The family of this 88-nucleotide RNA sequence from Beta vulgaris is "small nucleolar RNA snoR114". For this family Rfam cites "Mining small RNA sequencing data: a new approach to identify small nucleolar RNAs in Arabidopsis" (Chen and Wu, Nucleic Acids Res, 2009). Rfam links the family to the GO terms RNA processing and nucleolus. It is annotated as a C/D-box small nucleolar RNA. NCBI's taxonomy places the organism under Eukaryota, Tracheophyta, Magnoliopsida, Beta, Beta vulgaris.
[Rfam]
RNA sequence: AAGCAGUGAGGAUAAUUGCGCAUGCUGUGGCAGUUGGGUCCGCCACAUUACAUCUGACUUCAGAUGCAACAAGAGCGCAUCUGAGCUU
Numbered sequence: 001a002a003g004c005a006g007u008g009a010g011g012a013u014a015a016u017u018g019c020g021c022a023u024g025c026u027g028u029g030g031c032a033g034u035u036g037g038g039u040c041c042g043c044c045a046c047a048u049u050a051c052a053u054c055u056g057a058c059u060u061c062a063g064a065u066g067c068a069a070c071a072a073g074a075g076c077g078c079a080u081c082u083g084a085g086c087u088u
Stems, first nucleotide, its partner, number of pairs: 001088004